[Rfam]
RNA sequence: GGCGUGUGAUCGGGAGAGACUGCCAACGCCAACGCGUGCUGGGCAGCGCCGAAGGAGCAACCGCCCCGGAAACUCUCAGGCAAAGGGACCGAUCACACGUU
Numbered sequence: 001g002g003c004g005u006g007u008g009a010u011c012g013g014g015a016g017a018g019a020c021u022g023c024c025a026a027c028g029c030c031a032a033c034g035c036g037u038g039c040u041g042g043g044c045a046g047c048g049c050c051g052a053a054g055g056a057g058c059a060a061c062c063g064c065c066c067c068g069g070a071a072a073c074u075c076u077c078a079g080g081c082a083a084a085g086g087g088a089c090c091g092a093u094c095a096c097a098c099g100u101u
Stems, first nucleotide, its partner, number of pairs: 006096008020046004048081003051077002055075003061069002
This 101-nucleotide sequence from Limnohabitans sp. B9-3 belongs to the Rfam family "Glycine riboswitch aptamer". It scores 67 bits against the family's covariance model.